This 224-nucleotide sequence from Terrihalobacillus insolitus belongs to the Rfam family "Group II catalytic intron D1-D4-6". The pairing is the family consensus, mapped onto this sequence. Taxonomically the source falls in Terrihalobacillus (Bacteria, Bacilli, Caryophanales, Bacillaceae). It scores 115 bits against the family's covariance model.
[Rfam]
RNA sequence: AAAUUCCCGCCGAAUAAGAACUAGCCAUCGUAGCGAGUCUUGGAGAGUAGUAGGUAACUGCUACCUUUAAGCGUAGGCAGUUAGAUAGUAAGCCGUAAGCUAUACUAAAGGGAUUGAGCUCCGAAAAAUCCAGAUGAGAGGGCUGAUAUUUUUGACGUUGCAGAAAGCAAUAUUUCUGUAUCAUUUUGGCGAGAUACUAGAAACAUCUCUGGAGUCGGUGACCA
Number, nucleotide and partner (000 for none) at each position: 001a000002a000003a000004u000005u000006c000007c000008c000009g000010c000011c000012g029013a028014a000015u000016a000017a000018g000019a000020a000021c000022u192023a000024g190025c189026c000027a000028u013029c012030g000031u083032a082033g081034c080035g000036a000037g078038u077039c076040u075041u073042g072043g068044a067045g066046a000047g064048u063049a062050g061051u060052a059053g058054g000055u000056a000057a000058c053059u052060g051061c050062u049063a048064c047065c000066u045067u044068u043069a000070a000071g000072c042073g041074u000075a040076g039077g038078c037079a000080g034081u033082u032083a031084g000085a000086u000087a000088g000089u000090a000091a000092g000093c000094c000095g000096u000097a000098a000099g000100c000101u000102a000103u000104a000105c000106u000107a000108a000109a000110g000111g000112g000113a000114u000115u218116g216117a000118g215119c214120u213121c212122c211123g210124a000125a000126a000127a000128a000129u000130c000131c000132a000133g000134a000135u000136g209137a208138g207139a206140g000141g204142g168143c167144u166145g000146a000147u162148a000149u160150u000151u000152u000153u000154g000155a000156c000157g000158u000159u000160g149161c000162a147163g000164a000165a000166a144167g143168c142169a000170a000171u000172a000173u203174u202175u201176c200177u199178g197179u196180a195181u194182c193183a000184u000185u000186u000187u000188g000189g025190c024191g000192a022193g182194a181195u180196a179197c178198u000199a177200g176201a175202a174203a173204c141205a000206u139207c138208u137209c136210u123211g122212g121213a120214g119215u118216c116217g000218g115219u000220g000221a000222c000223c000224a000